The record is a 102-nucleotide RNA from Thiopseudomonas alkaliphila, which matches "TPP riboswitch aptamer (THI element)" in Rfam. Gene Ontology term of the family: thiamine pyrophosphate binding. The match comes from Rfam's covariance-model search (85 bits).
RNA sequence: UUGUUCUUGUCGGGGUGCCAUUAUGGCUGAGAUUGGUAAUAACCAGAUCCCGUUGAACCUGAUCGGGUUAAGACCCGCGUAGGGAACAAGAUAAGCGUGUCA
Numbered sequence: 001u002u003g004u005u006c007u008u009g010u011c012g013g014g015g016u017g018c019c020a021u022u023a024u025g026g027c028u029g030a031g032a033u034u035g036g037u038a039a040u041a042a043c044c045a046g047a048u049c050c051c052g053u054u055g056a057a058c059c060u061g062a063u064c065g066g067g068u069u070a071a072g073a074c075c076c077g078c079g080u081a082g083g084g085a086a087c088a089a090g091a092u093a094a095g096c097g098u099g100u101c102a
Base pairs, nucleotide, nucleotide: 006090007089008088009087010086011052012051013050014049016046017027018026019025020024034045035044036043037042058083059082060081061080064077065076066075067074
The source organism's lineage runs through Bacteria, Pseudomonadati, Gammaproteobacteria, Pseudomonadales and Thiopseudomonas.